[Rfam]
RNA sequence: UUCUUAUCAAGAGAGGCAGAGGGACUGGCCCUAUGAAGCCUCGGCAGCGGACUCUAUCAAUGAGACUGUGCCAAAUCCAGCAAGCGGAGAUGCUUGGGAGAUAAGAA
Numbered sequence: 001u002u003c004u005u006a007u008c009a010a011g012a013g014a015g016g017c018a019g020a021g022g023g024a025c026u027g028g029c030c031c032u033a034u035g036a037a038g039c040c041u042c043g044g045c046a047g048c049g050g051a052c053u054c055u056a057u058c059a060a061u062g063a064g065a066c067u068g069u070g071c072c073a074a075a076u077c078c079a080g081c082a083a084g085c086g087g088a089g090a091u092g093c094u095u096g097g098g099a100g101a102u103a104a105g106a107a
Stems, first nucleotide, its partner, number of pairs: 001107008013042005021031003025080004043072004048068002052062001076099001081096006
RNA: SAM riboswitch aptamer (S box leader)